[Rfam]
RNA sequence: CACACGUAAGGCAUGGGAUCGUCCGGGAGAAAUCCGGGCUUUUCCGCCGGUGGCAUUCCCGAAGGGUUUGCUGUUCGCCUUGCGGAGGUUCAACCGGAAAAGGAGAAAAAGG
Numbered sequence: 001c002a003c004a005c006g007u008a009a010g011g012c013a014u015g016g017g018a019u020c021g022u023c024c025g026g027g028a029g030a031a032a033u034c035c036g037g038g039c040u041u042u043u044c045c046g047c048c049g050g051u052g053g054c055a056u057u058c059c060c061g062a063a064g065g066g067u068u069u070g071c072u073g074u075u076c077g078c079c080u081u082g083c084g085g086a087g088g089u090u091c092a093a094c095c096g097g098a099a100a101a102g103g104a105g106a107a108a109a110a111g112g
Stems, first nucleotide, its partner, number of pairs: 001087001003085001005084007016045002024036002027034001052072004
Background: This 112-nucleotide RNA from Neorhizobium sp. S3-V5DH belongs to the Rfam family "rpsB sRNA". The match comes from Rfam's covariance-model search (45 bits). Rfam classes the family as a small RNA. The organism belongs to Neorhizobium, within Bacteria.